[Rfam]
RNA sequence: AGGAGGAACAAUCGCAGUGGUGGUGGCCAUCCGUGGAGCCCUGGAUUCAGCCCCCACAGGAACUUUGGAGCUCUCCGUCUGCAGGGCCUGGAGGCUCCGGGGGCAG
Numbered sequence: 001a002g003g004a005g006g007a008a009c010a011a012u013c014g015c016a017g018u019g020g021u022g023g024u025g026g027c028c029a030u031c032c033g034u035g036g037a038g039c040c041c042u043g044g045a046u047u048c049a050g051c052c053c054c055c056a057c058a059g060g061a062a063c064u065u066u067g068g069a070g071c072u073c074u075c076c077g078u079c080u081g082c083a084g085g086g087c088c089u090g091g092a093g094g095c096u097c098c099g100g101g102g103g104c105a106g
Base pairs, nucleotide, nucleotide: 002098003097004096005095009090010089012086013085019079020078021077022076023075025074026073029072031070034067035066036065037064040060041059042058043057
Rfam assigns this 106-nucleotide RNA sequence from Vulpes vulpes to the family "mir-8834 microRNA precursor family". Rfam links the family to the GO terms RISC complex and miRNA-mediated post-transcriptional gene silencing. Lineage of the source: Eukaryota > Opisthokonta > Theria > Eutheria > Vulpes.